[Rfam]
RNA sequence: GCGGAUGGCUGGAUAAUCGCCGCCUUGGGGUAAACCCUUGGGGGAGGAAAGUCCGGACUCCAUUGAGCAAAGGUGCCGGGUAACGCCCGGCGGGGGUAACCCUAGGGAAAGCGCCACAGAGAACAGACUGCCCUCUAUACGGGGGUGAUGGUGAAACGGUGGAGUAAGAGCCCACCGCGGGACUGGUAACAGGACCGGCACGGCAAGCCCCACCUGGAGCAAUGCCAAAUAGGGGUCCACUAGCAGGGACUGUGUGCGUUCGCGCAUACCGCCUGCGAGGUCGCUCAAGCCUUUGAGACCCGGGUUGGCAGCUUGAGCCUGUUGGUAACAGCAGGCCUAGAGGAAUGGUUAUCGACGGGGCGCAAGCCCCUGAACAAAAUCCGGCUUAUAGGCCAUCCGCGUAU
Numbered sequence: 001g002c003g004g005a006u007g008g009c010u011g012g013a014u015a016a017u018c019g020c021c022g023c024c025u026u027g028g029g030g031u032a033a034a035c036c037c038u039u040g041g042g043g044g045a046g047g048a049a050a051g052u053c054c055g056g057a058c059u060c061c062a063u064u065g066a067g068c069a070a071a072g073g074u075g076c077c078g079g080g081u082a083a084c085g086c087c088c089g090g091c092g093g094g095g096g097u098a099a100c101c102c103u104a105g106g107g108a109a110a111g112c113g114c115c116a117c118a119g120a121g122a123a124c125a126g127a128c129u130g131c132c133c134u135c136u137a138u139a140c141g142g143g144g145g146u147g148a149u150g151g152u153g154a155a156a157c158g159g160u161g162g163a164g165u166a167a168g169a170g171c172c173c174a175c176c177g178c179g180g181g182a183c184u185g186g187u188a189a190c191a192g193g194a195c196c197g198g199c200a201c202g203g204c205a206a207g208c209c210c211c212a213c214c215u216g217g218a219g220c221a222a223u224g225c226c227a228a229a230u231a232g233g234g235g236u237c238c239a240c241u242a243g244c245a246g247g248g249a250c251u252g253u254g255u256g257c258g259u260u261c262g263c264g265c266a267u268a269c270c271g272c273c274u275g276c277g278a279g280g281u282c283g284c285u286c287a288a289g290c291c292u293u294u295g296a297g298a299c300c301c302g303g304g305u306u307g308g309c310a311g312c313u314u315g316a317g318c319c320u321g322u323u324g325g326u327a328a329c330a331g332c333a334g335g336c337c338u339a340g341a342g343g344a345a346u347g348g349u350u351a352u353c354g355a356c357g358g359g360g361c362g363c364a365a366g367c368c369c370c371u372g373a374a375c376a377a378a379a380u381c382c383g384g385c386u387u388a389u390a391g392g393c394c395a396u397c398c399g400c401g402u403a404u
Stems, first nucleotide, its partner, number of pairs: 001400010011389001012353007020044002023041002027037002049387003053384005058219004067285001071215005076090005091105001092103004106210002111208002113204003128150001130146006158176005177199001178197003183192003223310004233301005277293005317336008
RNA: Bacterial RNase P class A
Organism: Celeribacter marinus